[Rfam]
RNA sequence: GGGGGUGACCGGUUUCGACAGGUCGUGAUCCGGGUGCACGGUGCAGGCGGGGGUUGGACGGAUGGCCCCCUUAUCAAUCCGCCCACAUCAAACUGCCAACGAUAACUUCGAACUGGCUCUCGCUGCCUAGGGCAACCUAGGCUCCGAGCGAGUCCUUGGGAUCUCUGGGUACCAAGCUCGUUAAACCCCUGAAAGGGUGGCUUCGGCCUGCCGGACAGGGCACCAGAUAGGCCGCCGCGACGCACCCUGACGACGGCCGAGAUCAGGGAGCAAACGUCCUGAGCGGCUCGUCCGUUCCCCGCCAGGAGGUUUCAAGAACGGACCAAGCCUGUGGAUGAACCGCCAUGCGGCAUGUCUUGGACGCGGGUUCAACUCCCGCCACCUCCACCA
Numbered sequence: 001g002g003g004g005g006u007g008a009c010c011g012g013u014u015u016c017g018a019c020a021g022g023u024c025g026u027g028a029u030c031c032g033g034g035u036g037c038a039c040g041g042u043g044c045a046g047g048c049g050g051g052g053g054u055u056g057g058a059c060g061g062a063u064g065g066c067c068c069c070c071u072u073a074u075c076a077a078u079c080c081g082c083c084c085a086c087a088u089c090a091a092a093c094u095g096c097c098a099a100c101g102a103u104a105a106c107u108u109c110g111a112a113c114u115g116g117c118u119c120u121c122g123c124u125g126c127c128u129a130g131g132g133c134a135a136c137c138u139a140g141g142c143u144c145c146g147a148g149c150g151a152g153u154c155c156u157u158g159g160g161a162u163c164u165c166u167g168g169g170u171a172c173c174a175a176g177c178u179c180g181u182u183a184a185a186c187c188c189c190u191g192a193a194a195g196g197g198u199g200g201c202u203u204c205g206g207c208c209u210g211c212c213g214g215a216c217a218g219g220g221c222a223c224c225a226g227a228u229a230g231g232c233c234g235c236c237g238c239g240a241c242g243c244a245c246c247c248u249g250a251c252g253a254c255g256g257c258c259g260a261g262a263u264c265a266g267g268g269a270g271c272a273a274a275c276g277u278c279c280u281g282a283g284c285g286g287c288u289c290g291u292c293c294g295u296u297c298c299c300c301g302c303c304a305g306g307a308g309g310u311u312u313c314a315a316g317a318a319c320g321g322a323c324c325a326a327g328c329c330u331g332u333g334g335a336u337g338a339a340c341c342g343c344c345a346u347g348c349g350g351c352a353u354g355u356c357u358u359g360g361a362c363g364c365g366g367g368u369u370c371a372a373c374u375c376c377c378g379c380c381a382c383c384u385c386c387a388c389c390a
Base pairs, nucleotide, nucleotide: 001386002385003384004383005382006381007380019359020358021357022356024354025353026352027351032348034346035345036344039342040341041340042339044331045330046329047328048327049070050069051068052067053066057083059081060080061079062078063077122145125142126141127140128139129138130137148181149180150179151178152177153176156168157167160198162196163195164194166192205258206257207256208255210271211270273311274310275309277307278306279305280304281303285299286298290323291322292321293320295317296316363379364378365377366376367375